[Rfam]
This 73-nucleotide RNA from Facklamia miroungae belongs to the Rfam family "tRNA". The family's consensus secondary structure is taken from published work. The organism belongs to Facklamia, within Bacteria.
RNA sequence: CGCGGGGUGGAGAAGCUGGCAUCUCGUCGGGCUCAUAACCCGAAGGUCGUAGGUUCGAAUCCUACCCCCGCAA
Numbered sequence: 001c002g003c004g005g006g007g008u009g010g011a012g013a014a015g016c017u018g019g020c021a022u023c024u025c026g027u028c029g030g031g032c033u034c035a036u037a038a039c040c041c042g043a044a045g046g047u048c049g050u051a052g053g054u055u056c057g058a059a060u061c062c063u064a065c066c067c068c069c070g071c072a073a
Stems, first nucleotide, its partner, number of pairs: 002071006010025004027043005049065005